[Rfam]
RNA sequence: AAAGCAGGUUGCAAUUGCAGUGCUUCCUGCUGUGGGAUCACUGCCAUUUUCCUGCUGAGAGCAACUCUGUUAACACUGUGCUUUCACCUGUACAGUGGUGAAAGUGUUUGUUCUUAACAUGCACAAGU
Dot-bracket structure: ..((((((.........(((((.(((........))).))))).......)))))).........(.((((((.(...((((((((((........)))))))))).....).)))))).).......
A member of the RNA family "Small nucleolar RNA SNORA69" from Calyptomena viridis, 128 nucleotides long. Rfam's curators write: U69 is a member of the H/ACA class of small nucleolar RNAs (snoRNAs) which act as guides in the the modification of uridines to pseudouridines. Rfam 15.1 lists 808 matches to the family in 584 species. The match comes from Rfam's covariance-model search (72 bits). The family's consensus secondary structure was predicted with PFOLD. Its family is annotated with RNA processing and nucleolus in the Gene Ontology.